[Rfam]
A member of the RNA family "Archaeal small subunit ribosomal RNA" from Sulfodiicoccus acidiphilus, 359 nucleotides of a longer RNA. A reference for the family is Cannone et al. (2002), "The comparative RNA web (CRW) site: an online database of comparative sequence and structure information for ribosomal, intron, and other RNAs", BMC Bioinformatics. NCBI's taxonomy places the organism under Archaea, Thermoproteati, Thermoprotei, Sulfolobales, Sulfodiicoccus. Rfam 15.1 lists 709 matches to the family in 491 species. A search with the family's covariance model found it, with a score of 1452 bits. Pairs were carried over by alignment from the consensus structure, which is taken from published work.
RNA sequence: GGCCUAAAGCGCCCGUAGCCGGCCCGGUAAGUUCGUGUCUAAAGGCCGGGGCUCAACCUCGGAAAUGGUGCGAAUACUGCCGGGCUAGGGGGCGAGAGAGGCUGGGAGUACUCCUGGAGUAGGGGCGAAAUCCGUAGAUCCCAGGAGGACUACCAGUGGCGAAGGCGCCCAGCUAGAGCGCGCCCGACGGUGAGGGGCGAAAGCCGGGGCAGCAAACCGGAUUAGAUACCCGGGUAGUCCCGGCCGUAAACUAUGCGGGCUAUGUGUCAGGUGGGCUUGGAGUCCACCUGGUGCAACAGGGAAGUCCUUUAAGCCCGCCGCCUGGGGAGUACAGCCGCAAGGCCGAAACUUAAAGGAAU
Number, nucleotide and partner (000 for none) at each position: 001g322002g321003c320004c000005u000006a000007a000008a000009g319010c000011g198012c197013c196014c195015g000016u192017a000018g191019c190020c189021g000022g085023c084024c083025c082026g081027g080028u079029a000030a078031g077032u074033u073034c072035g071036u070037g069038u068039c067040u000041a000042a000043a000044g000045g000046c062047c061048g060049g059050g058051g057052c000053u000054c000055a000056a000057c051058c050059u049060c048061g047062g046063a000064a000065a000066u000067g039068g038069u037070g036071c035072g034073a033074a032075u000076a000077c031078u030079g028080c027081c026082g025083g024084g023085c022086u000087a000088g000089g185090g184091g183092g181093c180094g179095a000096g000097a000098g000099a000100g174101g173102c172103u171104g170105g169106g168107a151108g150109u000110a000111c147112u146113c145114c144115u143116g142117g141118a000119g000120u000121a000122g133123g132124g131125g000126c000127g000128a000129a000130a000131u124132c123133c122134g000135u000136a000137g000138a000139u000140c000141c117142c116143a115144g114145g113146a112147g111148g000149a000150c108151u107152a000153c000154c000155a000156g000157u000158g000159g166160c165161g000162a000163a000164g000165g160166c159167g000168c106169c105170c104171a103172g102173c101174u100175a000176g000177a000178g000179c094180g093181c092182g000183c091184c090185c089186g000187a000188c000189g020190g019191u018192g016193a000194g000195g014196g013197g012198c011199g000200a000201a000202a000203g244204c243205c242206g241207g240208g239209g000210c000211a000212g238213c237214a000215a000216a000217c233218c232219g231220g230221a000222u000223u000224a000225g000226a000227u000228a000229c000230c220231c219232g218233g217234g000235u000236a000237g213238u212239c208240c207241c206242g205243g204244c203245c000246g000247u000248a000249a000250a000251c000252u000253a000254u000255g318256c317257g316258g315259g314260c313261u000262a000263u295264g294265u293266g292267u291268c290269a289270g288271g287272u286273g285274g284275g283276c282277u000278u000279g000280g000281a000282g276283u275284c274285c273286a272287c271288c270289u269290g268291g267292u266293g265294c264295a263296a000297c000298a000299g307300g306301g000302a000303a000304g000305u000306c300307c299308u000309u000310u000311a000312a000313g260314c259315c258316c257317g256318c255319c009320g003321c002322c001323u000324g351325g350326g349327g000328a000329g000330u000331a000332c000333a000334g343335c342336c341337g000338c000339a000340a000341g336342g335343c334344c000345g000346a000347a000348a000349c326350u325351u324352a000353a000354a000355g000356g000357a000358a000359u000
Clan: SSU clan.